[Rfam]
Shown here is a 168-nucleotide RNA sequence from Polarella glacialis, a member of the family "ACEA small nucleolar RNA U3". The source organism's lineage runs through Eukaryota, Dinophyceae, Suessiales, Suessiaceae and Polarella. Pairs were carried over by alignment from the consensus structure, which is taken from published work. Rfam links the family to the GO terms nucleolus and RNA processing. Small nucleolar RNAs (snoRNAs) are involved in the processing and modification of rRNA in the nucleolus.
RNA sequence: UCGACUGCACUUGCACAGGAUCACUGCUAUAGUGAUUCCUCUUGCAUAAUUGUCAUGAAACAGAGCUUCACAGCAUCUCUGAUGCUGUCGAUCUCUGCACUGAUAAGGAAUUUGCUGGAACUUGUUCCCAGCUUGAUGAAACUUAUCAGUGCAGACUUCUGAAGAGAU
Numbered sequence: 001u002c003g004a005c006u007g008c009a010c011u012u013g014c015a016c017a018g019g020a021u022c023a024c025u026g027c028u029a030u031a032g033u034g035a036u037u038c039c040u041c042u043u044g045c046a047u048a049a050u051u052g053u054c055a056u057g058a059a060a061c062a063g064a065g066c067u068u069c070a071c072a073g074c075a076u077c078u079c080u081g082a083u084g085c086u087g088u089c090g091a092u093c094u095c096u097g098c099a100c101u102g103a104u105a106a107g108g109a110a111u112u113u114g115c116u117g118g119a120a121c122u123u124g125u126u127c128c129c130a131g132c133u134u135g136a137u138g139a140a141a142c143u144u145a146u147c148a149g150u151g152c153a154g155a156c157u158u159c160u161g162a163a164g165a166g167a168u
Stems, first nucleotide, its partner, number of pairs: 003039001006035001008034004017028002020025001046067001050063004076167005094155005100149008114132003118126001